[Rfam]
RNA sequence: CAUAGUUACUGGAUUCCCGAAAGGAUUCACAUUUGUGAAGAAGCCUUGUAACCGAAACUAUCAAAGGGGGAACAAUUAUUAUG
Numbered sequence: 001c002a003u004a005g006u007u008a009c010u011g012g013a014u015u016c017c018c019g020a021a022a023g024g025a026u027u028c029a030c031a032u033u034u035g036u037g038a039a040g041a042a043g044c045c046u047u048g049u050a051a052c053c054g055a056a057a058c059u060a061u062c063a064a065a066g067g068g069g070g071a072a073c074a075a076u077u078a079u080u081a082u083g
Base pairs, nucleotide, nucleotide: 014072015071016070017069018068021047022046023045024044026039027038028037029036030035052067053066
RNA: SAM-III riboswitch aptamer (SMK box)
Organism: Carnobacterium divergens